[Rfam]
RNA sequence: UGCCGGUGAGGAGAGCAAGCAUCCUGUCUUACCCCCUGUUCAGUUCCAGAGCCAGUAAUGGUGAACCCACUGGGACUGACUGGGAGAGAGGAUGAGAAUUUGUUCCAUAGGGAACAGUCUGAGGCAC
Numbered sequence: 001u002g003c004c005g006g007u008g009a010g011g012a013g014a015g016c017a018a019g020c021a022u023c024c025u026g027u028c029u030u031a032c033c034c035c036c037u038g039u040u041c042a043g044u045u046c047c048a049g050a051g052c053c054a055g056u057a058a059u060g061g062u063g064a065a066c067c068c069a070c071u072g073g074g075a076c077u078g079a080c081u082g083g084g085a086g087a088g089a090g091g092a093u094g095a096g097a098a099u100u101u102g103u104u105c106c107a108u109a110g111g112g113a114a115c116a117g118u119c120u121g122a123g124g125c126a127c
Base pairs, nucleotide, nucleotide: 001126002125003124004123
The record is a 127-nucleotide RNA sequence from Canis lupus, which matches "Small nucleolar RNA SNORD22" in Rfam. Rfam's curators put it in the seed alignment. By type it is a C/D-box small nucleolar RNA. The family has 49 seed sequences and 1,081 matches in Rfam 15.1. Rfam links the family to the GO terms RNA processing and nucleolus. For this family Rfam cites "A mammalian gene with introns instead of exons generating stable RNA products" (Tycowski et al., Nature, 1996).